Peptidase-S11 RNA: a 92-nucleotide sequence from Pantoea sp. Sc1.
[Rfam]
RNA sequence: CGUAUGAUGCUGCUGCCAGCCCGCGCGCCGACGUGACUGAGGCGGGCGGCCUGUGUCUCUCUGGCACAGUACAUAACACCAACCGGGUUUUU
Numbered sequence: 001c002g003u004a005u006g007a008u009g010c011u012g013c014u015g016c017c018a019g020c021c022c023g024c025g026c027g028c029c030g031a032c033g034u035g036a037c038u039g040a041g042g043c044g045g046g047c048g049g050c051c052u053g054u055g056u057c058u059c060u061c062u063g064g065c066a067c068a069g070u071a072c073a074u075a076a077c078a079c080c081a082a083c084c085g086g087g088u089u090u091u092u
Stems, first nucleotide, its partner, number of pairs: 015050003019047006051069006